[Rfam]
RNA sequence: CGCAUCCUGCGCCGGUCGAAGCCCUGCGUUCCUACGCGGGGUGUUUUCGUAGGCCGGGCAGGAUGCG
Numbered sequence: 001c002g003c004a005u006c007c008u009g010c011g012c013c014g015g016u017c018g019a020a021g022c023c024c025u026g027c028g029u030u031c032c033u034a035c036g037c038g039g040g041g042u043g044u045u046u047u048c049g050u051a052g053g054c055c056g057g058g059c060a061g062g063a064u065g066c067g
Stems, first nucleotide, its partner, number of pairs: 001067010012057006021042009
Dot-bracket structure: ((((((((((.((((((...(((((((((....))))))))).........))))))))))))))))
Shown here is a 67-nucleotide RNA sequence, a member of the family "DUF3800-VIII RNA". Rfam's curators put it in the seed alignment. About the family: Bacteroidetes, Cyanobacteria, Firmicutes, Planctomycetes (1 example), Proteobacteria, Tenericutes (1 example). The base pairs follow the family's consensus structure, which is taken from published work.